[Rfam]
RNA: Y RNA
Organism: Tupaia belangeri
RNA sequence: GGCUGGUCUAAAGAUAGUGAGUUAUCUCAAAUGAGUGUUCAAAGUCAGUUACAGGUUGAACUCCUUGUUCUACUAUUUCCCCCCUUCUCACUACUGCACUUGACUAGUCUUAA
Numbered sequence: 001g002g003c004u005g006g007u008c009u010a011a012a013g014a015u016a017g018u019g020a021g022u023u024a025u026c027u028c029a030a031a032u033g034a035g036u037g038u039u040c041a042a043a044g045u046c047a048g049u050u051a052c053a054g055g056u057u058g059a060a061c062u063c064c065u066u067g068u069u070c071u072a073c074u075a076u077u078u079c080c081c082c083c084c085u086u087c088u089c090a091c092u093a094c095u096g097c098a099c100u101u102g103a104c105u106a107g108u109c110u111u112a113a
Stems, first nucleotide, its partner, number of pairs: 001109008010101002015096001016092006044074001047071002